[Rfam]
RNA sequence: GAUAACCUUCGGGGUCGGGUGAAAUUCCCAAUCGACGGUGAUGAGCGCAUGCUCUAAGCCCGUGAGCUUUAACGAGCAGGACUUGGUGAGAAUCCAAGGCCGACAGUAUAGUCUGGAUGGGAGAAGGGGAAA
Numbered sequence: 001g002a003u004a005a006c007c008u009u010c011g012g013g014g015u016c017g018g019g020u021g022a023a024a025u026u027c028c029c030a031a032u033c034g035a036c037g038g039u040g041a042u043g044a045g046c047g048c049a050u051g052c053u054c055u056a057a058g059c060c061c062g063u064g065a066g067c068u069u070u071a072a073c074g075a076g077c078a079g080g081a082c083u084u085g086g087u088g089a090g091a092a093u094c095c096a097a098g099g100c101c102g103a104c105a106g107u108a109u110a111g112u113c114u115g116g117a118u119g120g121g122a123g124a125a126g127g128g129g130a131a132a
Stems, first nucleotide, its partner, number of pairs: 003130001006127005017029003031112002033102002035063004058100002068076001082098005104115003
Rfam assigns this 132-nucleotide sequence from Kurthia sibirica to the family "FMN riboswitch aptamer (RFN element)".
It scores 108 bits against the family's covariance model.
Its family is annotated with FMN binding in the Gene Ontology.
For this family Rfam cites "Regulation of riboflavin biosynthesis and transport genes in bacteria by transcriptional and translational attenuation" (Vitreschak et al., Nucleic Acids Res, 2002).